[Rfam]
RNA sequence: UGGUCUGUGAUGAAUAGCCCACUGCGCAAUCUGAGUUCUGUGUGGAACUGAAUGACGAAUUUUGUGCUAACAAAGGCAUCUGAGACCA
Numbered sequence: 001u002g003g004u005c006u007g008u009g010a011u012g013a014a015u016a017g018c019c020c021a022c023u024g025c026g027c028a029a030u031c032u033g034a035g036u037u038c039u040g041u042g043u044g045g046a047a048c049u050g051a052a053u054g055a056c057g058a059a060u061u062u063u064g065u066g067c068u069a070a071c072a073a074a075g076g077c078a079u080c081u082g083a084g085a086c087c088a
Stems, first nucleotide, its partner, number of pairs: 002087004039050002044048001

The record is an 88-nucleotide sequence from Ophiophagus hannah, which matches "small Cajal body-specific RNA 18" in Rfam. For this family Rfam cites "Purified box C/D snoRNPs are able to reproduce site-specific 2'-O-methylation of target RNA in vitro" (Galardi et al., Mol Cell Biol, 2002). The family's consensus secondary structure was predicted with PFOLD. A search with the family's covariance model found it, with a score of 49 bits. About the family: scaRNAs are a specific class of small nuclear RNAs which localise to the Cajal bodies and guide the modification of RNA polymerase II transcribed spliceosomal RNAs U1, U2, U4, U5 and U12. This C/D box domain U91 (also known as U4-8) was identified by Darzacq and is predicted to guide the 2'O-ribose methylation of U4 snRNA C8. The source organism's lineage runs through Eukaryota, Teleostomi, Amniota, Sauria and Ophiophagus. Gene Ontology terms of the family: nucleolus, Cajal body and RNA processing. It is annotated as a small Cajal body RNA.